[Rfam]
RNA: MIR7993 microRNA precursor family
RNA sequence: UUAAGUUAACCAUAUAAAAUAUGUCUUCUUCUUUAACUAUACUCAUCACCUCAAGUGAAAAAAGCUUGUUACUUUUUGUGUUUAUUGAGGUGAAUGUGUAUAACUAAAGGAGAUGAUAUAUUUUAUGUGGCUGACUUAACU
Numbered sequence: 001u002u003a004a005g006u007u008a009a010c011c012a013u014a015u016a017a018a019a020u021a022u023g024u025c026u027u028c029u030u031c032u033u034u035a036a037c038u039a040u041a042c043u044c045a046u047c048a049c050c051u052c053a054a055g056u057g058a059a060a061a062a063a064g065c066u067u068g069u070u071a072c073u074u075u076u077u078g079u080g081u082u083u084a085u086u087g088a089g090g091u092g093a094a095u096g097u098g099u100a101u102a103a104c105u106a107a108a109g110g111a112g113a114u115g116a117u118a119u120a121u122u123u124u125a126u127g128u129g130g131c132u133g134a135c136u137u138a139a140c141u
Stems, first nucleotide, its partner, number of pairs: 001139008010130016028112008038102005044096003048091007